The record is a 110-nucleotide RNA from Nocardioides sp. Root1257, which matches "TPP riboswitch aptamer (THI element)" in Rfam.
The match comes from Rfam's covariance-model search (65 bits).
The family's consensus secondary structure is taken from published work.
Lineage of the source: Bacteria > Bacillati > Actinomycetes > Propionibacteriales > Nocardioides.
[Rfam]
RNA sequence: UCCAGAAGACAGGGGAGCACGCGCGAGCGUGCUGAGAGUGCGGACCAGCCGCAGACCCUACGAACCUGAUCCGGUUAGCACCGGCGCUAGGGAGUCGAAGUGAAGUCCAU
Numbered sequence: 001u002c003c004a005g006a007a008g009a010c011a012g013g014g015g016a017g018c019a020c021g022c023g024c025g026a027g028c029g030u031g032c033u034g035a036g037a038g039u040g041c042g043g044a045c046c047a048g049c050c051g052c053a054g055a056c057c058c059u060a061c062g063a064a065c066c067u068g069a070u071c072c073g074g075u076u077a078g079c080a081c082c083g084g085c086g087c088u089a090g091g092g093a094g095u096c097g098a099a100g101u102g103a104a105g106u107c108c109a110u
Stems, first nucleotide, its partner, number of pairs: 008096003011059004017032005039053005065091004071084004